Rfam assigns this 101-nucleotide RNA from Halobacillus sp. BAB-2008 to the family "Purine riboswitch aptamer". Lineage of the source: Bacteria > Bacillota > Bacilli > Bacillaceae > Halobacillus. Clan: Purine riboswitches. Rfam links the family to the GO term purine nucleobase biosynthetic process.
RNA sequence: AAAUUGAUACAUGAAGUACCUUGUAUAAGUUCAGGAAUAUGGCCUGAGCGUUUCUACCAGCUACCGGAAAUAGCUUGUCUACAGGGAAGAGUGAAUGUUGA
Numbered sequence: 001a002a003a004u005u006g007a008u009a010c011a012u013g014a015a016g017u018a019c020c021u022u023g024u025a026u027a028a029g030u031u032c033a034g035g036a037a038u039a040u041g042g043c044c045u046g047a048g049c050g051u052u053u054c055u056a057c058c059a060g061c062u063a064c065c066g067g068a069a070a071u072a073g074c075u076u077g078u079c080u081a082c083a084g085g086g087a088a089g090a091g092u093g094a095a096u097g098u099u100g101a
Stems, first nucleotide, its partner, number of pairs: 019086007029049007058077002060074004